[Rfam]
RNA sequence: GAACAAGAGCGCAGGGUGGAUGCCUUGGCACUAAGAGCCGAUGAAAGACGUGAUAAGCUGCGAAAAGCUUCGGGGAGGAGCAAAUAUCCUACGAUCCGGAGAUAUCUGAAUGGGGAAACCCACUUGAGCAAACCUCAAGUAUCCAUACGCCAAUACAUAACGUAUGGAAGGGAACCCGGGGAACUGAAACAUCUAAGUACCCGGAGGAAAAGAAAGAAAACUCGAUUCCCAAAGUAGCGGCGAGCGAAAUGGGAGGAGCCUAAACCGGAAUGCGUGCAUUCCGGGGUUAUGGACUGCAUAACGUGACUUGAAUGGUAAAAGAACGGUUUUGGGAAAUCCGGCCAGAGAGGGUGAAAGCCCCGUAUUUGAAACCAGAAGAGAGCAGGCAGUAUCCAAAGUACCACGAGACACGAGAAACCUUGUGGGAAGUCGGGGGGACCACCCCCCAAGGCUAAAUACUACUUAGUGACCGAUAGUGCAUAGUACUGUGAAGGAAAGGUGAAAAGAACCCCGGGAGGGGAGUGAAAAAGAACCUGAAACCCUGUGUUUACAAG
Numbered sequence: 001g002a003a004c005a006a007g008a009g010c011g012c013a014g015g016g017u018g019g020a021u022g023c024c025u026u027g028g029c030a031c032u033a034a035g036a037g038c039c040g041a042u043g044a045a046a047g048a049c050g051u052g053a054u055a056a057g058c059u060g061c062g063a064a065a066a067g068c069u070u071c072g073g074g075g076a077g078g079a080g081c082a083a084a085u086a087u088c089c090u091a092c093g094a095u096c097c098g099g100a101g102a103u104a105u106c107u108g109a110a111u112g113g114g115g116a117a118a119c120c121c122a123c124u125u126g127a128g129c130a131a132a133c134c135u136c137a138a139g140u141a142u143c144c145a146u147a148c149g150c151c152a153a154u155a156c157a158u159a160a161c162g163u164a165u166g167g168a169a170g171g172g173a174a175c176c177c178g179g180g181g182a183a184c185u186g187a188a189a190c191a192u193c194u195a196a197g198u199a200c201c202c203g204g205a206g207g208a209a210a211a212g213a214a215a216g217a218a219a220a221c222u223c224g225a226u227u228c229c230c231a232a233a234g235u236a237g238c239g240g241c242g243a244g245c246g247a248a249a250u251g252g253g254a255g256g257a258g259c260c261u262a263a264a265c266c267g268g269a270a271u272g273c274g275u276g277c278a279u280u281c282c283g284g285g286g287u288u289a290u291g292g293a294c295u296g297c298a299u300a301a302c303g304u305g306a307c308u309u310g311a312a313u314g315g316u317a318a319a320a321g322a323a324c325g326g327u328u329u330u331g332g333g334a335a336a337u338c339c340g341g342c343c344a345g346a347g348a349g350g351g352u353g354a355a356a357g358c359c360c361c362g363u364a365u366u367u368g369a370a371a372c373c374a375g376a377a378g379a380g381a382g383c384a385g386g387c388a389g390u391a392u393c394c395a396a397a398g399u400a401c402c403a404c405g406a407g408a409c410a411c412g413a414g415a416a417a418c419c420u421u422g423u424g425g426g427a428a429g430u431c432g433g434g435g436g437g438a439c440c441a442c443c444c445c446c447c448a449a450g451g452c453u454a455a456a457u458a459c460u461a462c463u464u465a466g467u468g469a470c471c472g473a474u475a476g477u478g479c480a481u482a483g484u485a486c487u488g489u490g491a492a493g494g495a496a497a498g499g500u501g502a503a504a505a506g507a508a509c510c511c512c513g514g515g516a517g518g519g520g521a522g523u524g525a526a527a528a529a530g531a532a533c534c535u536g537a538a539a540c541c542c543u544g545u546g547u548u549u550a551c552a553a554g
Stems, first nucleotide, its partner, number of pairs: 007549010022534001023499002027471002029468007036460002038171002046107003049062003068101007077089003112121003122140007142168008175206001176204005186193002216223002226456001227254005237245002257453004265284007290395003294389004307380003313374004318367003324340003329336001343347001349361003401425007432447005486493002509520004
Bacterial large subunit ribosomal RNA: a 554-nucleotide part of an RNA from Robinsoniella sp. RHS. The source organism's lineage runs through Bacteria, Bacillati, Bacillota, Lachnospiraceae and Robinsoniella. The match comes from Rfam's covariance-model search (2837 bits).